Shown here is a 165-nucleotide RNA from Actinomyces sp. oral taxon 448, a member of the family "c-di-AMP riboswitch aptamer (ydaO/yuaA leader)". The match comes from Rfam's covariance-model search (60 bits). The organism belongs to Actinomyces sp. oral taxon 448, within Bacteria.
RNA sequence: CGGAGUUCUUUUCCCAGACCAUGGCAGGAACGGGGGAACCACGAACGGCUCGCAGGGCGCCGACACGGCGCUCAGCGGGUCUCUGGGGUGAAGCCUGUGAGAACAGGCCGGGCUUCUCCAGUCCGAACCCGACAGCUCACCUCGGCAGCUCAAUAAGGAGAGACA
Numbered sequence: 001c002g003g004a005g006u007u008c009u010u011u012u013c014c015c016a017g018a019c020c021a022u023g024g025c026a027g028g029a030a031c032g033g034g035g036g037a038a039c040c041a042c043g044a045a046c047g048g049c050u051c052g053c054a055g056g057g058c059g060c061c062g063a064c065a066c067g068g069c070g071c072u073c074a075g076c077g078g079g080u081c082u083c084u085g086g087g088g089u090g091a092a093g094c095c096u097g098u099g100a101g102a103a104c105a106g107g108c109c110g111g112g113c114u115u116c117u118c119c120a121g122u123c124c125g126a127a128c129c130c131g132a133c134a135g136c137u138c139a140c141c142u143c144g145g146c147a148g149c150u151c152a153a154u155a156a157g158g159a160g161a162g163a164c165a
Stems, first nucleotide, its partner, number of pairs: 001148001006029003031144005040085002086130003094107004110124004